[Rfam]
Nucleotides: 117
Stems, first nucleotide, its partner, number of pairs: 002071011014058002017055001019053003023049004028044001031041001097115001099113001101111003
Number, partner (000 for none) and nucleotide at each position: 001000c002071g003070a004069g005068a006067u007066g008065c009064c010063u011062c012061u013000c014058g015057g016000g017055c018000a019053g020052g021051g022000u023049g024048a025047a026046u027000a028044g029000g030000a031041c032000c033000u034000u035000a036000g037000a038000c039000a040000a041031g042000c043000u044028c045000u046026a047025u048024u049023c050000u051021u052020c053019c054000c055017g056000g057015u058014c059000a060000g061012a062011g063010a064009g065008g066007c067006a068005u069004u070003u071002c072000u073000g074000c075000g076000u077000c078000a079000u080000a081000a082000c083000g084000c085000c086000c087000a088000c089000u090000c091000a092000g093000c094000a095000c096000c097115c098000a099113g100000c101111c102110c103109a104000a105000u106000c107000g108000g109103u110102g111101g112000a113099u114000c115097g116000a117000g